[Rfam]
RNA sequence: CGAGUAAGCCAGAUGGUCGCUGCUGCAUUGUAUGCAGGAGAGGAAAGUCCGAGCUCCAUAGGGCAGGGUGCUGGGUAAUACCCAGUGGAGGCGACUCUAAGGAAAGUGCAACAGAGAUAUACCGCCUAUUAUAUUGUAAAUAUACCCAUGUAUAGGCUUUAAUAGCUUUUGGGAUUUACAAAAUAGGUAAGGGUGGAAAGGUGAGGUAAGAGCUCACCAGCGCAAUGGCGACUUUGCGGCUAUGUAAACCCCACCUGGAGCAAGAUCGAAUAGGAAGACACAUGGGGCUGCCCGUCCCGUCUUCGGGUAAGAUCGCUUGAGCCUAUUGGUAACAAUAGGCCUAGAUAGAUGACCAUUUAAUACAGAACUCGGCUUAUAGACUUACUCGAUAU
Number, nucleotide and partner (000 for none) at each position: 001c388002g387003a386004g385005u384006a383007a382008g381009c000010c379011a377012g357013a356014u355015g354016g353017u352018c351019g000020c040021u039022g000023c037024u036025g035026c034027a033028u032029u000030g000031u000032a028033u027034g026035c025036a024037g023038g000039a021040g020041a000042g000043g000044a000045a375046a374047g373048u000049c372050c371051g370052a369053g368054c260055u259056c258057c257058a000059u000060a000061g293062g292063g291064c290065a000066g256067g255068g254069u253070g252071c085072u084073g083074g082075g081076u000077a000078a000079u000080a000081c075082c074083c073084a072085g071086u100087g098088g097089a096090g095091g000092c000093g000094a000095c090096u089097c088098u087099a000100a086101g251102g250103a000104a000105a000106g249107u248108g245109c244110a243111a000112c000113a000114g000115a000116g000117a000118u000119a000120u000121a000122c192123c191124g188125c187126c186127u185128a184129u183130u182131a000132u180133a000134u000135u000136g000137u000138a000139a000140a000141u000142a000143u000144a000145c000146c000147c000148a000149u000150g000151u000152a000153u000154a000155g000156g000157c000158u000159u000160u000161a000162a000163u000164a000165g000166c000167u000168u000169u000170u000171g000172g000173g000174a000175u000176u000177u000178a000179c000180a132181a000182a130183a129184u128185a127186g126187g125188u124189a000190a000191g123192g122193g000194u000195g000196g000197a000198a000199a000200g218201g217202u216203g215204a214205g213206g000207u000208a000209a000210g000211a000212g000213c205214u204215c203216a202217c201218c200219a000220g240221c238222g237223c236224a235225a234226u000227g232228g000229c000230g000231a000232c227233u000234u225235u224236g223237c222238g221239g000240c220241u000242a000243u110244g109245u108246a000247a000248a107249c106250c102251c101252c070253a069254c068255c067256u066257g057258g056259a055260g054261c000262a000263a000264g314265a313266u312267c311268g000269a000270a000271u000272a000273g000274g304275a303276a302277g301278a300279c299280a000281c000282a000283u000284g298285g297286g296287g295288c294289u000290g064291c063292c062293c061294g288295u287296c286297c285298c284299g279300u278301c277302u276303u275304c274305g000306g000307g000308u000309a000310a000311g267312a266313u265314c264315g000316c000317u000318u000319g000320a000321g340322c339323c338324u337325a336326u335327u334328g333329g000330u000331a000332a000333c328334a327335a326336u325337a324338g323339g322340c321341c000342u000343a000344g000345a000346u000347a000348g000349a000350u000351g018352a017353c016354c015355a014356u013357u012358u000359a000360a000361u000362a000363c000364a000365g000366a000367a000368c053369u052370c051371g050372g049373c047374u046375u045376a000377u011378a000379g010380a000381c008382u007383u006384a005385c004386u003387c002388g001389a000390u000391a000392u000

Description:
Shown here is a 392-nucleotide sequence from Clostridium thermopalmarium, a member of the family "Bacterial RNase P class A". It scores 321 bits against the family's covariance model. Its family is annotated with ribonuclease P activity, tRNA processing and dimeric ribonuclease P complex in the Gene Ontology. The literature on the family includes a 1998 paper in Annu Rev Biochem by Frank and Pace, "Ribonuclease P: unity and diversity in a tRNA processing ribozyme".